[Rfam]
Source information: Rfam assigns this 135-nucleotide RNA from Ornithorhynchus anatinus to the family "Small nucleolar RNA SNORA75". A search with the family's covariance model found it, with a score of 96 bits. Its family is annotated with nucleolus and RNA processing in the Gene Ontology. The family's RNA type in Rfam is H/ACA-box small nucleolar RNA. The base pairs follow the family's consensus structure, which was predicted with PFOLD. The literature on the family includes a 1997 paper in Genes Dev by Ganot et al., "The family of box ACA small nucleolar RNAs is defined by an evolutionarily conserved secondary structure and ubiquitous sequence elements essential for RNA accumulation". Rfam 15.1 lists 414 matches to the family in 310 species.
Nucleotides: 135
Stems, first nucleotide, its partner, number of pairs: 003059006014051002016046003022038005070128002073125003091106001093104004
Number, partner (000 for none) and nucleotide at each position: 001000u002000c003059c004058u005057u006056c007055u008054c009000a010000a011000u012000g013000a014051g015050c016046u017045c018044c019000u020000u021000c022038c023037u024036g025035c026034c027000a028000g029000a030000c031000a032000g033000u034026g035025g036024c037023a038022g039000c040000c041000u042000a043000u044018g045017g046016a047000u048000u049000c050015g051014c052000a053000u054008g055007a056006g057005a058004a059003g060000a061000a062000a063000a064000u065000g066000a067000a068000c069000a070128u071127c072000c073125c074124a075123g076000u077000u078000c079000c080000u081000g082000g083000c084000a085000c086000u087000u088000u089000u090000a091106c092000c093104u094103c095102u096101g097000u098000u099000u100000c101096u102095a103094g104093a105000u106091g107000g108000u109000u110000u111000g112000u113000u114000c115000u116000g117000c118000c119000a120000g121000g122000g123075c124074u125073g126000u127071g128070a129000g130000a131000c132000a133000u134000u135000c